This 61-nucleotide RNA sequence from Handroanthus impetiginosus belongs to the Rfam family "Plastid-psbN 5UTR RNA". The organism belongs to Handroanthus, within Eukaryota. Plastid psbN is a non-coding RNA (ncRNA) recognised in plastids. It was reported as a conserved 11 stem-loop in the prime untranslated region (5UTR) of psbN genes. It has been reported that the motif is retained in a subset of mature transcripts in barley, which can suggests a possible role in transcript alternative 5 prime processing. The base pairs follow the family's consensus structure, which was predicted with LocARNA. The match comes from Rfam's covariance-model search (64 bits). For this family Rfam cites "Retrograde signaling in plants: A critical review focusing on the GUN pathway and beyond" (Richter et al., Plant Commun, 2023).
RNA sequence: UGCAACACCCAUCAAAGGGGUCGUUCCUCACCGUAGAGCUACCUUACCAUACUCAGAAUUC
Numbered sequence: 001u002g003c004a005a006c007a008c009c010c011a012u013c014a015a016a017g018g019g020g021u022c023g024u025u026c027c028u029c030a031c032c033g034u035a036g037a038g039c040u041a042c043c044u045u046a047c048c049a050u051a052c053u054c055a056g057a058a059u060u061c
Stems, first nucleotide, its partner, number of pairs: 017045005023039004